[Rfam]
RNA: glmS glucosamine-6-phosphate activated ribozyme aptamer
Organism: Tepidibacillus fermentans
RNA sequence: AACAGAAUAAAAGCGCCUGAACUACGAGGUUUGUACCAAAUGUAGCUUGUAGUUGACGAGGAAGAAGGUUAUCGAAUCAUCGGCGGAUGCCUUCCGGUAGACAUGAAUGCCGUUAAGAUAAAGCCUAAAAAGAUAGGGCAACCAAUCUGACAAAAGCUUUAUCAUCAUGAACU
Numbered sequence: 001a002a003c004a005g006a007a008u009a010a011a012a013g014c015g016c017c018u019g020a021a022c023u024a025c026g027a028g029g030u031u032u033g034u035a036c037c038a039a040a041u042g043u044a045g046c047u048u049g050u051a052g053u054u055g056a057c058g059a060g061g062a063a064g065a066a067g068g069u070u071a072u073c074g075a076a077u078c079a080u081c082g083g084c085g086g087a088u089g090c091c092u093u094c095c096g097g098u099a100g101a102c103a104u105g106a107a108u109g110c111c112g113u114u115a116a117g118a119u120a121a122a123g124c125c126u127a128a129a130a131a132g133a134u135a136g137g138g139c140a141a142c143c144a145a146u147c148u149g150a151c152a153a154a155a156g157c158u159u160u161a162u163c164a165u166c167a168u169g170a171a172c173u
Stems, first nucleotide, its partner, number of pairs: 020054008064094005072083004095112005117163007131148004136143002